A member of the RNA family "Y RNA" from Pan troglodytes, 97 nucleotides long. Rfam's curators write: Y RNAs are components of the Ro ribonucleoprotein particle (Ro RNP), in association with Ro60 and La proteins. The Y RNAs and Ro60 and La proteins are well conserved, but the function of the Ro RNP is not known. In humans the RNA component can be one of four small RNAs -- hY1, hY3, hY4 and hY5. These small RNAs are predicted to fold into a conserved secondary structure containing three stem structures. The largest of the four, hY1, contains an additional hairpin. This family includes a significant number of annotated pseudogenes and the model is expected to discriminate poorly between real and Y RNA related pseudogenes. Rfam classes the family as a non-coding RNA gene.
RNA sequence: GGCUGGUCCAGUGGUAGCAGGUUAUCAGAACUUACCAACAUUAGUAUCAUUAAAGUUGGUAUACAACCCCCCUCACUGCUAAAUUUGACUGGCUUAA
Dot-bracket structure: ((((((((.((...(((..((...........(((.((.................)).)))..........))..))...)...))))))))))...
Pairs were carried over by alignment from the consensus structure, which is taken from published work.